A member of the RNA family "tRNA" from Holospora obtusa, 73 nucleotides long. The family's consensus secondary structure is taken from published work. It scores 75 bits against the family's covariance model. By type it is a transfer RNA. Taxonomically the source falls in Holospora obtusa (Bacteria, Pseudomonadati, Alphaproteobacteria, Holosporales).
RNA sequence: GCCGAGUUAGCUCAGUUGGUAGAGCGACUGAUUUGUAAUCAGUAGGUCGUUAGUUCAAGUCUAAUACUCGGCA
Numbered sequence: 001g002c003c004g005a006g007u008u009a010g011c012u013c014a015g016u017u018g019g020u021a022g023a024g025c026g027a028c029u030g031a032u033u034u035g036u037a038a039u040c041a042g043u044a045g046g047u048c049g050u051u052a053g054u055u056c057a058a059g060u061c062u063a064a065u066a067c068u069c070g071g072c073a
Stems, first nucleotide, its partner, number of pairs: 001072007010025004027043005049065005